[Rfam]
RNA sequence: GUGUGUUUUAUGAGGAUCUGUUUAAAAAUCUCCAGAGAGAGAGAGAACAGCUCUGAUGUCUGCACAC
Numbered sequence: 001g002u003g004u005g006u007u008u009u010a011u012g013a014g015g016a017u018c019u020g021u022u023u024a025a026a027a028a029u030c031u032c033c034a035g036a037g038a039g040a041g042a043g044a045g046a047a048c049a050g051c052u053c054u055g056a057u058g059u060c061u062g063c064a065c066a067c
Base pairs, nucleotide, nucleotide: 001067002066003065004064005063015053016052018050019049020048021047022046023045030039031038032037
The record is a 67-nucleotide RNA sequence from Cynoglossus semilaevis, which matches "Selenocysteine insertion sequence 1" in Rfam. Rfam 15.1 lists 3,793 matches to the family in 721 species. The organism belongs to Cynoglossus, within Eukaryota. It scores 39 bits against the family's covariance model. The incorporation of selenocysteine into a protein sequence is directed by an in-frame UGA codon (usually a stop codon) within the coding region of the mRNA. Selenoprotein mRNAs contain a conserved secondary structure in the 3' UTR that is required for the distinction of UGA stop from UGA selenocysteine. The selenocysteine insertion sequence (SECIS) is around 60 nt in length and adopts a hairpin structure which is sufficiently well-defined and conserved to act as a computational screen for selenoprotein genes.